Nucleotides: 072
Stems, first nucleotide, its partner, number of pairs: 011038002016072007023035002044061007
Number, partner (000 for none) and nucleotide at each position: 001000a002000g003000a004000g005000u006000u007000c008000a009000c010000a011038g012037c013000c014000a015000u016072a017071g018070c019069a020068g021067a022066a023035g024034c025000a026000u027000g028000c029000a030000u031000g032000g033000g034024g035023c036000a037012g038011c039000c040000c041000u042000g043000u044061c045060a046059g047058a048057u049056u050055c051000c052000g053000g054000u055050g056049a057048a058047u059046c060045u061044g062000c063000a064000a065000a066022u067021u068020c069019u070018g071017c072016u
Shown here is a 72-nucleotide sequence from Crocodylus porosus, a member of the family "Mammalian CPEB3 ribozyme". The source organism's lineage runs through Eukaryota, Vertebrata, Archosauria, Crocodylia and Crocodylus.